[Rfam]
RNA sequence: CCCGAUCCGUUCGGGAUGACAUGUGGCGCAGAUGCGCUGAAUCGCAAC
Numbered sequence: 001c002c003c004g005a006u007c008c009g010u011u012c013g014g015g016a017u018g019a020c021a022u023g024u025g026g027c028g029c030a031g032a033u034g035c036g037c038u039g040a041a042u043c044g045c046a047a048c
Base pairs, nucleotide, nucleotide: 001015002014003013004012005011017044018043019042025038026037027036028035029034

A member of the RNA family "eL15-Euryarchaeota ribosomal protein leader", 48 nucleotides long. For this family Rfam cites "Discovery of 20 novel ribosomal leader candidates in bacteria and archaea" (Eckert and Weinberg, BMC Microbiol, 2020). It is annotated as a cis-regulatory leader.